Rfam assigns this 82-nucleotide sequence from Neophocaena asiaeorientalis to the family "Small nucleolar RNA SNORD121A". For this family Rfam cites "snoSeeker: an advanced computational package for screening of guide and orphan snoRNA genes in the human genome" (Yang et al., Nucleic Acids Res, 2006). Taxonomically the source falls in Neophocaena asiaeorientalis (Eukaryota, Tetrapoda, Amniota, Eutheria). Its family is annotated with RNA processing and nucleolus in the Gene Ontology. The family's consensus secondary structure was predicted with WAR. Rfam classes the family as a C/D-box small nucleolar RNA.
Nucleotides: 082
Stems, first nucleotide, its partner, number of pairs: 002081005008075004
Number, partner (000 for none) and nucleotide at each position: 001000c002081u003080g004079g005078a006077a007000a008075a009074g010073a011072c012000g013000a014000u015000g016000a017000u018000g019000c020000u021000u022000u023000a024000u025000u026000c027000c028000c029000a030000a031000g032000c033000a034000c035000a036000u037000a038000u039000c040000u041000g042000a043000g044000u045000u046000g047000u048000a049000u050000g051000u052000g053000u054000g055000g056000a057000u058000g059000g060000c061000a062000c063000u064000a065000a066000a067000a068000c069000u070000g071000a072011g073010u074009c075008u076000u077006u078005u079004c080003u081002g082000c